[Rfam]
RNA: Archaeal small subunit ribosomal RNA, nucleotides 1 to 499
RNA sequence: ACUCCAGUUGAUGGUGCUGGAGGACGCUGCUAUCGGGGUUCGCCUAAGCCAUGCAAGUCAGGGCAGCUAGUCUGCCCGGCGAACGGCUCAGUAACACGUGGGCAACCUACCCUGGAGUGGGGGAUAACCUCGGGAAACUGAGAGUAAUACCCCAUAGGGGAGAGGUACUGGAAGGUCCUCUCCCUGAAAGCCUUCGGGCGCUCCAGGAUGGGCCUGCGGCGGAUUAGGUAGUUGGUGGGGUAACGGCCCACCAAGCCUAAGAUCCGUACCGGCUGUGGGAGCAGGAGCCGGGAGAAGGGGACUGAGACAAGGCCCCUAGCCCUACGGGGUGCAGCAGGCGCGAAACCUCUGCAAUGCCCGAAAGGGUGACAGGGGGACCCCGAGUGGUAGCUUUGCUACCUUUUCUGGAGUGCAAAAAGCUCCAGGAAUAAGGGCUGGGCAAGACCCGUGCCAGCCGCCGCGGUAAUACGGGCAGCCCGAGUGGCGUCCACGCAUACUG
Numbered sequence: 001a002c003u004c005c006a007g008u009u010g011a012u013g014g015u016g017c018u019g020g021a022g023g024a025c026g027c028u029g030c031u032a033u034c035g036g037g038g039u040u041c042g043c044c045u046a047a048g049c050c051a052u053g054c055a056a057g058u059c060a061g062g063g064c065a066g067c068u069a070g071u072c073u074g075c076c077c078g079g080c081g082a083a084c085g086g087c088u089c090a091g092u093a094a095c096a097c098g099u100g101g102g103c104a105a106c107c108u109a110c111c112c113u114g115g116a117g118u119g120g121g122g123g124a125u126a127a128c129c130u131c132g133g134g135a136a137a138c139u140g141a142g143a144g145u146a147a148u149a150c151c152c153c154a155u156a157g158g159g160g161a162g163a164g165g166u167a168c169u170g171g172a173a174g175g176u177c178c179u180c181u182c183c184c185u186g187a188a189a190g191c192c193u194u195c196g197g198g199c200g201c202u203c204c205a206g207g208a209u210g211g212g213c214c215u216g217c218g219g220c221g222g223a224u225u226a227g228g229u230a231g232u233u234g235g236u237g238g239g240g241u242a243a244c245g246g247c248c249c250a251c252c253a254a255g256c257c258u259a260a261g262a263u264c265c266g267u268a269c270c271g272g273c274u275g276u277g278g279g280a281g282c283a284g285g286a287g288c289c290g291g292g293a294g295a296a297g298g299g300g301a302c303u304g305a306g307a308c309a310a311g312g313c314c315c316c317u318a319g320c321c322c323u324a325c326g327g328g329g330u331g332c333a334g335c336a337g338g339c340g341c342g343a344a345a346c347c348u349c350u351g352c353a354a355u356g357c358c359c360g361a362a363a364g365g366g367u368g369a370c371a372g373g374g375g376g377a378c379c380c381c382g383a384g385u386g387g388u389a390g391c392u393u394u395g396c397u398a399c400c401u402u403u404u405c406u407g408g409a410g411u412g413c414a415a416a417a418a419g420c421u422c423c424a425g426g427a428a429u430a431a432g433g434g435c436u437g438g439g440c441a442a443g444a445c446c447c448g449u450g451c452c453a454g455c456c457g458c459c460g461c462g463g464u465a466a467u468a469c470g471g472g473c474a475g476c477c478c479g480a481g482u483g484g485c486g487u488c489c490a491c492g493c494a495u496a497c498u499g
Stems, first nucleotide, its partner, number of pairs: 004020005022489010033383009042341001048339003052336003057080003061077006087294003097218007106211002111207007119153004129142005158184008167176002190199002220266003227257003232254008269291004273284004296317005319330004347373001349372003355368005386400006405425007432478006445472004454461002